Shown here is a 72-nucleotide sequence from Homo sapiens, a member of the family "mir-3689 microRNA precursor family". Gene Ontology terms of the family: RISC complex and miRNA-mediated post-transcriptional gene silencing.

RNA sequence: GGGAGGUGUGAUCCCACGCUCACUGGGAGGUGUGAUCUCACACUCGCUGGGAGGUGUGCUAUCGUCUUCCCU
Numbered sequence: 001g002g003g004a005g006g007u008g009u010g011a012u013c014c015c016a017c018g019c020u021c022a023c024u025g026g027g028a029g030g031u032g033u034g035a036u037c038u039c040a041c042a043c044u045c046g047c048u049g050g051g052a053g054g055u056g057u058g059c060u061a062u063c064g065u066c067u068u069c070c071c072u
Stems, first nucleotide, its partner, number of pairs: 001071005015058004020053001023050004029044001031042004